[Rfam]
RNA sequence: UUGCAUUCUUAAACCCUCUUGGUCGCUUCGCUCCGAGUGCUUCCGAGAUAUGAGUGAAUGCUACAGAAAUUUGCAGGAGAGUCCAAAGGGCUGCGCUUCUCCUGUGGCUCAGUCUUAUUUCGUACCUGCGACAUCU
Numbered sequence: 001u002u003g004c005a006u007u008c009u010u011a012a013a014c015c016c017u018c019u020u021g022g023u024c025g026c027u028u029c030g031c032u033c034c035g036a037g038u039g040c041u042u043c044c045g046a047g048a049u050a051u052g053a054g055u056g057a058a059u060g061c062u063a064c065a066g067a068a069a070u071u072u073g074c075a076g077g078a079g080a081g082u083c084c085a086a087a088g089g090g091c092u093g094c095g096c097u098u099c100u101c102c103u104g105u106g107g108c109u110c111a112g113u114c115u116u117a118u119u120u121c122g123u124a125c126c127u128g129c130g131a132c133a134u135c136u
Base pairs, nucleotide, nucleotide: 003061004060005059006058008054009053010052011051017048018047019046020045021044022043025040026039065136066135067134071131072130073129074128075127076126077125087116088115089114090113091112092111093110095108096107099104
Source information: The family of this 136-nucleotide RNA sequence from Carlito syrichta is "Small nucleolar RNA SNORA14". By type it is an H/ACA-box small nucleolar RNA. ACA14 is a member of the H/ACA class of snoRNA that guide the sites of modification of uridines to pseudouridines. Rfam links the family to the GO terms nucleolus and RNA processing.